The record is a 101-nucleotide RNA sequence from Erwinia mallotivora, which matches "RprA RNA" in Rfam. Translational regulation of the stationary phase sigma factor RpoS is mediated by the formation of a double-stranded RNA stem-loop structure in the upstream region of the rpoS messenger RNA, occluding the translation initiation site.
[Rfam]
RNA sequence: ACAGCCAAUGUGCUGAUUUAUAAACAACGUUUUCCCCCUGAUAUAGUAAAGAAUUGCUGUGUGUAGUCUUUGCCCAUCCCAUGUGAUGGGCUUUUUUUUGC
Dot-bracket structure: ........................((..(.....)...))..............(((...)))........(((((((......)))))))..........